[Rfam]
Small nucleolar RNA snoR4a: a 74-nucleotide RNA from Arabis alpina. Pairs were carried over by alignment from the consensus structure, which was predicted with WAR. For this family Rfam cites "Multiple snoRNA gene clusters from Arabidopsis" (Brown et al., RNA, 2001). The source organism's lineage runs through Eukaryota, Viridiplantae, Gunneridae, Brassicales and Arabis.
RNA sequence: UGAUAUGAUGAAAUGGCAUAAUGUUUUGUGACACCCAGUCUGAUCUUUGUGAUUGAUUUGCCAUUAUCUGAUCC
Numbered sequence: 001u002g003a004u005a006u007g008a009u010g011a012a013a014u015g016g017c018a019u020a021a022u023g024u025u026u027u028g029u030g031a032c033a034c035c036c037a038g039u040c041u042g043a044u045c046u047u048u049g050u051g052a053u054u055g056a057u058u059u060g061c062c063a064u065u066a067u068c069u070g071a072u073c074c
Base pairs, nucleotide, nucleotide: 002073003072014063015062016061017060018059

It is annotated as a C/D-box small nucleolar RNA.